[Rfam]
RNA sequence: CGUCAAGAGUCUUUGGCAUCGUUUUGGUGGGCGUUUUUCUGUUGCCUUUAGAAAGGUAGAGGAAAAUG
Numbered sequence: 001c002g003u004c005a006a007g008a009g010u011c012u013u014u015g016g017c018a019u020c021g022u023u024u025u026g027g028u029g030g031g032c033g034u035u036u037u038u039c040u041g042u043u044g045c046c047u048u049u050a051g052a053a054a055g056g057u058a059g060a061g062g063a064a065a066a067u068g
Stems, first nucleotide, its partner, number of pairs: 010063005018057003022054004026049002029047001031045003035041001